[Rfam]
Nucleotides: 096
Base pairs, nucleotide, nucleotide: 001032002031003030004029005028007026009024042059043058044057045056046055047054048053067091068090069089070088071087072086073084074083075082076081
Number, partner (000 for none) and nucleotide at each position: 001032a002031g003030c004029u005028g006000u007026c008000a009024c010000g011000c012000c013000u014000g015000c016000c017000u018000a019000u020000g021000c022000a023000c024009g025000c026007g027000a028005c029004a030003g031002c032001u033000g034000u035000u036000c037000c038000c039000c040000u041000c042059u043058g044057g045056a046055g047054g048053u049000u050000u051000u052000a053048a054047c055046c056045u057044u058043c059042a060000a061000a062000c063000u064000c065000a066000u067091u068090g069089g070088c071087c072086g073084c074083g075082g076081a077000g078000a079000a080000a081076u082075c083074c084073g085000g086072c087071g088070g089069c090068c091067a092000u093000u094000u095000u096000u
Shown here is a 96-nucleotide sequence from Agrobacterium tumefaciens, a member of the family "Alphaproteobacterial ar15". For this family Rfam cites "A survey of sRNA families in alpha-proteobacteria" (del Val et al., RNA Biol, 2012). The pairing is the family consensus, mapped onto this sequence. The sequence is in the family's curated seed alignment. NCBI's taxonomy places the organism under Bacteria, Pseudomonadati, Rhizobiaceae, Agrobacterium tumefaciens complex, Agrobacterium tumefaciens. Gene Ontology term of the family: protein binding. Rfam classes the family as a small RNA.